[Rfam]
RNA: Small nucleolar RNA SNORA32
Organism: Oryctolagus cuniculus
RNA sequence: UGGUCAUUACCAAGGCCUUUAGAACGCAAUUUCUCACUUGCUGUGGACAUGACCAUAAAAGAAAUUUCCCACCCUUUGCUACCUGGCUAGCAAUCAGCCUAUUGGGGACAUUU
Numbered sequence: 001u002g003g004u005c006a007u008u009a010c011c012a013a014g015g016c017c018u019u020u021a022g023a024a025c026g027c028a029a030u031u032u033c034u035c036a037c038u039u040g041c042u043g044u045g046g047a048c049a050u051g052a053c054c055a056u057a058a059a060a061g062a063a064a065u066u067u068c069c070c071a072c073c074c075u076u077u078g079c080u081a082c083c084u085g086g087c088u089a090g091c092a093a094u095c096a097g098c099c100u101a102u103u104g105g106g107g108a109c110a111u112u113u
Base pairs, nucleotide, nucleotide: 003053004052005051006050007049010046011045012044026041027040028039029038068106069105070104071103077092078091079090
Dot-bracket structure: ..(((((..(((.............((((........))))..)))..)))))..............((((.....(((..........)))..........)))).......